A member of the RNA family "U7 small nuclear RNA" from Otolemur garnettii, 62 nucleotides long. A reference for the family is Spycher et al. (1994), "3' end processing of mouse histone pre-mRNA: evidence for additional base-pairing between U7 snRNA and pre-mRNA", Nucleic Acids Res. A search with the family's covariance model found it, with a score of 56 bits. The organism belongs to Otolemur, within Eukaryota.

RNA sequence: AAAUGUUGCAAAUCUUUUAGAAUUUGUCUAGCAGGUUUUCAAGUUUUCACUAGAAAACUCCC
Numbered sequence: 001a002a003a004u005g006u007u008g009c010a011a012a013u014c015u016u017u018u019a020g021a022a023u024u025u026g027u028c029u030a031g032c033a034g035g036u037u038u039u040c041a042a043g044u045u046u047u048c049a050c051u052a053g054a055a056a057a058c059u060c061c062c
Stems, first nucleotide, its partner, number of pairs: 034059007042051003